[Rfam]
Rfam assigns this 148-nucleotide RNA from Bacillus sp. FJAT-27916 to the family "PyrR binding site". The match comes from Rfam's covariance-model search (60 bits). The organism belongs to Bacillus, within Bacteria. The family's RNA type in Rfam is cis-regulatory element. The base pairs follow the family's consensus structure, which is taken from published work.
RNA sequence: GUUACCUUUAAGAGUAGUCCAGAGAGGCUGACAAGGUGCGCGUGAAUGAAUUGAGAGAUAUAGACCCGUAGUAUAGGUAUAUACUAUAGGUGUAUACUAUUAGUCAUACAAUCAGCACUUGCCUCAAAUGGGCAGGUGCUUUUUUUAU
Numbered sequence: 001g002u003u004a005c006c007u008u009u010a011a012g013a014g015u016a017g018u019c020c021a022g023a024g025a026g027g028c029u030g031a032c033a034a035g036g037u038g039c040g041c042g043u044g045a046a047u048g049a050a051u052u053g054a055g056a057g058a059u060a061u062a063g064a065c066c067c068g069u070a071g072u073a074u075a076g077g078u079a080u081a082u083a084c085u086a087u088a089g090g091u092g093u094a095u096a097c098u099a100u101u102a103g104u105c106a107u108a109c110a111a112u113c114a115g116c117a118c119u120u121g122c123c124u125c126a127a128a129u130g131g132g133c134a135g136g137u138g139c140u141u142u143u144u145u146u147a148u
Stems, first nucleotide, its partner, number of pairs: 003038006015030005062093001064091003068087008111143001114140011